[Rfam]
RNA sequence: AAAAAUUUAAAACUCCGAGCUUCUCCGCCUAAGUCUUGCAUAAGUUGUCAGUUUGAUAUGGUUGUUUGGCCGCUAGUGAAUCAUGUAUUAACUAGCCAGGGUUCAAUCAGAAAUUGAUUUAGCCUCCCUUACUUGGAAAGGUGUUUAAUGUUAAAAGAU
Number, nucleotide and partner (000 for none) at each position: 001a000002a000003a000004a152005a000006u150007u000008u000009a000010a000011a145012a144013c143014u000015c141016c140017g000018a000019g070020c069021u068022u000023c000024u000025c064026c000027g062028c061029c060030u000031a000032a000033g057034u056035c055036u000037u000038g000039c000040a000041u000042a000043a000044g000045u000046u000047g000048u000049c000050a000051g000052u000053u000054u000055g035056a034057u033058a000059u000060g029061g028062u027063u000064g025065u000066u000067u000068g021069g020070c019071c000072g096073c095074u094075a093076g092077u000078g000079a000080a000081u000082c000083a000084u000085g000086u000087a000088u000089u000090a000091a000092c076093u075094a074095g073096c072097c000098a000099g125100g124101g123102u122103u121104c000105a119106a118107u117108c116109a115110g000111a000112a000113a000114u000115u109116g108117a107118u106119u105120u000121a103122g102123c101124c100125u099126c136127c135128c000129u000130u000131a000132c000133u000134u000135g127136g126137a000138a000139a000140g016141g015142u000143g013144u012145u011146u000147a000148a000149u000150g006151u000152u004153a000154a000155a000156a000157g000158a000159u000